[Rfam]
Rfam assigns this 74-nucleotide sequence from Umboniibacter marinipuniceus to the family "tRNA". Rfam's curators write: Transfer RNA (tRNA) molecules are approximately 80 nucleotides in length. The family's consensus secondary structure is taken from published work.

RNA sequence: GGCAAGGUAGCUCAGCUGGUUAGAGCACAGCACUCAUAAUGCUGGGGUCGGCGGUUCAAGUCCGCCUCUUGCUA
Numbered sequence: 001g002g003c004a005a006g007g008u009a010g011c012u013c014a015g016c017u018g019g020u021u022a023g024a025g026c027a028c029a030g031c032a033c034u035c036a037u038a039a040u041g042c043u044g045g046g047g048u049c050g051g052c053g054g055u056u057c058a059a060g061u062c063c064g065c066c067u068c069u070u071g072c073u074a
Base pairs, nucleotide, nucleotide: 001073002072003071004070005069006068007067010026011025012024013023028044029043030042031041032040050066051065052064053063054062
Dot-bracket structure: (((((((..((((.........)))).(((((.......))))).....(((((.......)))))))))))).